A member of the RNA family "MIR6217 microRNA precursor family" from Miscanthus lutarioriparius, 228 nucleotides long. Pairs were carried over by alignment from the consensus structure, which was predicted with RNAalifold. NCBI's taxonomy places the organism under Eukaryota, Streptophyta, Streptophytina, commelinids, Miscanthus. A search with the family's covariance model found it, with a score of 158 bits.
RNA sequence: UGGCUAAAAAAUAAUUUAUUCUUUAGCAACUUUGAGUUAUGUUAAUUACUAUAUUAAUUUACGAGAUUAUAGUAACUCUUUACUAAUUGGUUUACUAUAACGUUAUUGUAAAUAUCUCAUGUGUUAUACUAACUCAACUAUCGUAAAUAUGUAUUAACAUUAUCGUAAAUUAGUAUAUAAAAUUAUCGUAAAUGGAGGUGGCUACAGAAUAACUUAUUUUUGUAGCUG
Number, nucleotide and partner (000 for none) at each position: 001u228002g227003g226004c225005u224006a223007a221008a220009a219010a218011a217012u216013a215014a214015u000016u212017u211018a210019u209020u208021c207022u206023u000024u204025a203026g202027c201028a000029a199030c198031u197032u196033u195034g000035a000036g000037u191038u190039a189040u188041g187042u000043u185044a184045a183046u182047u181048a000049c000050u177051a176052u175053a174054u173055u172056a171057a170058u169059u168060u167061a166062c165063g000064a000065g164066a163067u162068u000069a160070u159071a000072g000073u000074a154075a000076c000077u000078c000079u147080u146081u145082a144083c143084u000085a000086a000087u000088u140089g139090g138091u137092u136093u131094a130095c000096u128097a127098u126099a125100a124101c123102g122103u121104u000105a000106u000107u000108g116109u000110a000111a000112a000113u000114a000115u000116c108117u000118c000119a000120u000121g103122u102123g101124u100125u099126a098127u097128a096129c000130u094131a093132a000133c000134u000135c000136a092137a091138c090139u089140a088141u000142c000143g083144u082145a081146a080147a079148u000149a000150u000151g000152u000153a000154u074155u000156a000157a000158c000159a070160u069161u000162a067163u066164c065165g062166u061167a060168a059169a058170u057171u056172a055173g054174u053175a052176u051177a050178u000179a000180a000181a047182a046183u045184u044185a043186u000187c041188g040189u039190a038191a037192a000193u000194g000195g033196a032197g031198g030199u029200g000201g027202c026203u025204a024205c000206a022207g021208a020209a019210u018211a017212a016213c000214u014215u013216a012217u011218u010219u009220u008221u007222g000223u006224a005225g004226c003227u002228g001